[Rfam]
let-7 microRNA precursor family: a 91-nucleotide sequence from Electrophorus electricus. Its Rfam clan is "let-7 microRNA precursor clan". Rfam's curators write: This family represents the microRNAs (miRNA) let-7 and mir-98. let-7 was identified from a study of developmental timing in C. elegans, and was later shown to be part of a much larger class of non-coding RNAs termed miRNAs. A reference for the family is Rougvie (2001), "Control of developmental timing in animals", Nat Rev Genet. Lineage of the source: Eukaryota > Metazoa > Euteleostomi > Otomorpha > Electrophorus.

RNA sequence: UUGUGCUGAGGUAGUAAGUUGUGUUGUUGUGGGGACUUGGUAUGGUUUGUCCCUUGCUGGAGAUAACUAUACAUCUUACUGCCUUCCACAC
Numbered sequence: 001u002u003g004u005g006c007u008g009a010g011g012u013a014g015u016a017a018g019u020u021g022u023g024u025u026g027u028u029g030u031g032g033g034g035a036c037u038u039g040g041u042a043u044g045g046u047u048u049g050u051c052c053c054u055u056g057c058u059g060g061a062g063a064u065a066a067c068u069a070u071a072c073a074u075c076u077u078a079c080u081g082c083c084u085u086c087c088a089c090a091c
Base pairs, nucleotide, nucleotide: 002090003089004088005087008085009084010083011082012081013080014079015078016077017076018075020073021072022071023070024069026067027066032053033052034051035050055062